[Rfam]
RNA sequence: CCCAGGGCUGCAUCGCCGUUGGCGACUGCGCCCUGGGCUAGGUUGGGACGGCCCUCCGGGCCU
Numbered sequence: 001c002c003c004a005g006g007g008c009u010g011c012a013u014c015g016c017c018g019u020u021g022g023c024g025a026c027u028g029c030g031c032c033c034u035g036g037g038c039u040a041g042g043u044u045g046g047g048a049c050g051g052c053c054c055u056c057c058g059g060g061c062c063u
Stems, first nucleotide, its partner, number of pairs: 001037008050062005